[Rfam]
RNA sequence: GCGGACGUGGUGAAACCGGUAGCCACAGCAGACUUAAAAUCUGCCGUCUUCUGACAUGCGGGUUCGAGUCCCGCCGUCCGCA
Numbered sequence: 001g002c003g004g005a006c007g008u009g010g011u012g013a014a015a016c017c018g019g020u021a022g023c024c025a026c027a028g029c030a031g032a033c034u035u036a037a038a039a040u041c042u043g044c045c046g047u048c049u050u051c052u053g054a055c056a057u058g059c060g061g062g063u064u065c066g067a068g069u070c071c072c073g074c075c076g077u078c079c080g081c082a
Base pairs, nucleotide, nucleotide: 001081002080003079004078005077006076007075010026011025012024028044029043030042031041032040058074059073060072061071062070
RNA: tRNA